[Rfam]
RNA sequence: GAGGUCUUAGCUUAAUUAAAGCAAUUGAUUUGCAUUCAAUAGAUGUAGGAUGAAGUCUUACAGUCCUUA
Numbered sequence: 001g002a003g004g005u006c007u008u009a010g011c012u013u014a015a016u017u018a019a020a021g022c023a024a025u026u027g028a029u030u031u032g033c034a035u036u037c038a039a040u041a042g043a044u045g046u047a048g049g050a051u052g053a054a055g056u057c058u059u060a061c062a063g064u065c066c067u068u069a
Stems, first nucleotide, its partner, number of pairs: 001068004006063002010022004024040005045061005
RNA: tRNA